About this RNA
Rfam assigns this 88-nucleotide sequence from Boudabousia tangfeifanii to the family "ZMP/ZTP riboswitch aptamer (pfl RNA motif)". Pairs were carried over by alignment from the consensus structure, which is taken from published work. Lineage of the source: Bacteria > Bacillati > Actinomycetales > Actinomycetaceae > Boudabousia.

[Rfam]
RNA sequence: GGCACGGAUCGUAACUGGCGCGAAAAAGUGGUUACCACUGGGAAGCGAUCUGGUCCCCCUUGAUGCGUCGCACGCCUGGGCGUUGGGG
Numbered sequence: 001g002g003c004a005c006g007g008a009u010c011g012u013a014a015c016u017g018g019c020g021c022g023a024a025a026a027a028g029u030g031g032u033u034a035c036c037a038c039u040g041g042g043a044a045g046c047g048a049u050c051u052g053g054u055c056c057c058c059c060u061u062g063a064u065g066c067g068u069c070g071c072a073c074g075c076c077u078g079g080g081c082g083u084u085g086g087g088g
Base pairs, nucleotide, nucleotide: 005052006051007050008049009048010047011046012045015042016041017076018075019074020073028038029037030036031035065083066082067081068080069079